Shown here is a 136-nucleotide RNA from Xylanimonas cellulosilytica, a member of the family "FMN riboswitch aptamer (RFN element)". About the family: The RFN element is a highly conserved domain that is found frequently in the 5'-untranslated regions of prokaryotic mRNAs that encode for flavin mononucleotide (FMN) biosynthesis and transport proteins. The match comes from Rfam's covariance-model search (91 bits).
RNA sequence: AGCAUGCUCCGGGGGCGGUGAAACUCCGCACCGGCGGUGAUAGCCCGCGAACCGCGCCAACUCCUCGCGAGAAGGCGCGGCCGACCUGGUGGAACUCCAGGGCCGACGGUGAAAGUCCGGAUGAGAGGCGCAUGCG
Numbered sequence: 001a002g003c004a005u006g007c008u009c010c011g012g013g014g015g016c017g018g019u020g021a022a023a024c025u026c027c028g029c030a031c032c033g034g035c036g037g038u039g040a041u042a043g044c045c046c047g048c049g050a051a052c053c054g055c056g057c058c059a060a061c062u063c064c065u066c067g068c069g070a071g072a073a074g075g076c077g078c079g080g081c082c083g084a085c086c087u088g089g090u091g092g093a094a095c096u097c098c099a100g101g102g103c104c105g106a107c108g109g110u111g112a113a114a115g116u117c118c119g120g121a122u123g124a125g126a127g128g129c130g131c132a133u134g135c136g
Base pairs, nucleotide, nucleotide: 003134004133005132006131007130009128010127016028017027018026030116031115032105033104034048035047036046037045043103044102052080053079054078055077056076057075085101086100087099088098089097107119108118109117